[Rfam]
RNA sequence: AUGUUGGAUGAUGAAAUAAAUCAGACGGAUUCCCAUUGAUAUUUCAAAAUAUGAGAUAAAACAAAGGAACUUCUGACUCAU
Numbered sequence: 001a002u003g004u005u006g007g008a009u010g011a012u013g014a015a016a017u018a019a020a021u022c023a024g025a026c027g028g029a030u031u032c033c034c035a036u037u038g039a040u041a042u043u044u045c046a047a048a049a050u051a052u053g054a055g056a057u058a059a060a061a062c063a064a065a066g067g068a069a070c071u072u073c074u075g076a077c078u079c080a081u
Stems, first nucleotide, its partner, number of pairs: 001081003006077001
RNA: Small nucleolar RNA R12
Organism: Nyssa sinensis